[Rfam]
RNA sequence: CCUAGUAAAGAGCAAAGUUGUCGAAAGACAAUGACGCAAAGCCAACAGGCCUAAAGGGAAUUUCCAAAGGUGGCUGGGUUGCCAAA
Numbered sequence: 001c002c003u004a005g006u007a008a009a010g011a012g013c014a015a016a017g018u019u020g021u022c023g024a025a026a027g028a029c030a031a032u033g034a035c036g037c038a039a040a041g042c043c044a045a046c047a048g049g050c051c052u053a054a055a056g057g058g059a060a061u062u063u064c065c066a067a068a069g070g071u072g073g074c075u076g077g078g079u080u081g082c083c084a085a086a
Base pairs, nucleotide, nucleotide: 012037013036017032018031019030020029021028022027040080041079042078043077046076047075048074049071050070051069056065057064058063
RNA: c-di-GMP-I riboswitch aptamer
Organism: Bacillus sp. FJAT-26390